[Rfam]
RNA sequence: UAUUAUCUUCAGGGCGGGGCGAAGUUCCCCACCGGCGGUAAAGCCCGCAAGCCUACAUGGCAUGAUUCGGUUAGAUUCCGAAGCCGACAGUAUAGUCUGGAUGGAAGAAGGUAAGC
Numbered sequence: 001u002a003u004u005a006u007c008u009u010c011a012g013g014g015c016g017g018g019g020c021g022a023a024g025u026u027c028c029c030c031a032c033c034g035g036c037g038g039u040a041a042a043g044c045c046c047g048c049a050a051g052c053c054u055a056c057a058u059g060g061c062a063u064g065a066u067u068c069g070g071u072u073a074g075a076u077u078c079c080g081a082a083g084c085c086g087a088c089a090g091u092a093u094a095g096u097c098u099g100g101a102u103g104g105a106a107g108a109a110g111g112u113a114a115g116c
Stems, first nucleotide, its partner, number of pairs: 003114008017029003031096002033086002035048004043084002053060001066082005088099003